The family of this 113-nucleotide RNA sequence from Rhizobium sp. PDO1-076 is "EcpR1". Rfam's curators write: Perviously named SmelC291, SmrC10, or Sra33. According to its overproduction phenotype it was renamed Elongated Cell Phenotype RNA1. Induced by stress,EcpR1 negatively regulates cell cycle master regulatory genes dnaA and gcrA at post-transcriptional level by base pairing between its strongly conserved GC-rich loop and the target mRNAs. It's regulation is hfq-independent but requires RNase E to regulate dnaA. The match comes from Rfam's covariance-model search (97 bits). A reference for the family is del Val et al. (2007), "Identification of differentially expressed small non-coding RNAs in the legume endosymbiont Sinorhizobium meliloti by comparative genomics", Mol Microbiol. The organism belongs to Rhizobium, within Bacteria. By type it is a small RNA.
RNA sequence: AUACCCCAUGAUGCUCAGGUCCGCCGCAUCUCCUGGGUCGUGGGGUCGGUCGGUCGGCAUGCAACGUCCAAAACGGUUCCUCGUGCCGUGUUUGCGUACCGACCGACCCCCUA
Dot-bracket structure: ..((((((((...((((((............)))))).)))))))).((((((((((.........................................)))))))))).....